A member of the RNA family "T-box leader" from Clostridium sp. 'deep sea', 248 nucleotides long.
RNA sequence: AUCACAGCUGUGAUAGGGAUUUCGUUUUUUGAAGUAUAGUUACAGAGAGCCGGAUAAGGUGGAAACCGGUACUUCCUACUUAACAAAACAUCACCCUUGAGCUUGCACCUGAACUAUAAGUAAGGUAAACGGUAUUCCACCGUUAUCAGGAAGGGGAUAUGAUAGUAUCCUGCUAAGUGUUGAAUAUGGCUUUGUUUAGUCAUAUUUGAAACAAGAGUGGUACCACGGGAAUAUAACCCGUCUCUUAC
Numbered sequence: 001a002u003c004a005c006a007g008c009u010g011u012g013a014u015a016g017g018g019a020u021u022u023c024g025u026u027u028u029u030u031g032a033a034g035u036a037u038a039g040u041u042a043c044a045g046a047g048a049g050c051c052g053g054a055u056a057a058g059g060u061g062g063a064a065a066c067c068g069g070u071a072c073u074u075c076c077u078a079c080u081u082a083a084c085a086a087a088a089c090a091u092c093a094c095c096c097u098u099g100a101g102c103u104u105g106c107a108c109c110u111g112a113a114c115u116a117u118a119a120g121u122a123a124g125g126u127a128a129a130c131g132g133u134a135u136u137c138c139a140c141c142g143u144u145a146u147c148a149g150g151a152a153g154g155g156g157a158u159a160u161g162a163u164a165g166u167a168u169c170c171u172g173c174u175a176a177g178u179g180u181u182g183a184a185u186a187u188g189g190c191u192u193u194g195u196u197u198a199g200u201c202a203u204a205u206u207u208g209a210a211a212c213a214a215g216a217g218u219g220g221u222a223c224c225a226c227g228g229g230a231a232u233a234u235a236a237c238c239c240g241u242c243u244c245u246u247a248c
Stems, first nucleotide, its partner, number of pairs: 007102002015097004027085001029083004038073003049070005104128001107126004130142003180209012214245004225241005

By type it is a cis-regulatory leader. Lineage of the source: Bacteria > Bacillati > Eubacteriales > Clostridiaceae > Clostridium. The literature on the family includes a 2003 paper in J Mol Biol by Gerdeman et al., "Solution structure of the Bacillus subtilis T-box antiterminator RNA: seven nucleotide bulge characterized by stacking and flexibility".